[Rfam]
Shown here is a 46-nucleotide RNA sequence from Probosciger aterrimus, a member of the family "Histone 3' UTR stem-loop".
Taxonomically the source falls in Probosciger (Eukaryota, Amniota, Coelurosauria, Neoaves).
Gene Ontology term of the family: mRNA 3'-end processing by stem-loop binding and cleavage.
It scores 36 bits against the family's covariance model.

RNA sequence: CCAAAGGCUCUUUUAAGAGCCACCACAGGGUCACUAGAGAGCUGCA
Numbered sequence: 001c002c003a004a005a006g007g008c009u010c011u012u013u014u015a016a017g018a019g020c021c022a023c024c025a026c027a028g029g030g031u032c033a034c035u036a037g038a039g040a041g042c043u044g045c046a
Base pairs, nucleotide, nucleotide: 006021007020008019009018010017011016